Shown here is a 52-nucleotide RNA sequence from Megalops atlanticus, a member of the family "U7 small nuclear RNA". The match comes from Rfam's covariance-model search (52 bits). The base pairs follow the family's consensus structure, which was predicted with PFOLD.
RNA sequence: AAGUUUUGCUCUUUUAGUAUUUGUCAAGUAGGUUUCCUAUUAGGAAGCCCCA
Numbered sequence: 001a002a003g004u005u006u007u008g009c010u011c012u013u014u015u016a017g018u019a020u021u022u023g024u025c026a027a028g029u030a031g032g033u034u035u036c037c038u039a040u041u042a043g044g045a046a047g048c049c050c051c052a
Stems, first nucleotide, its partner, number of pairs: 031049008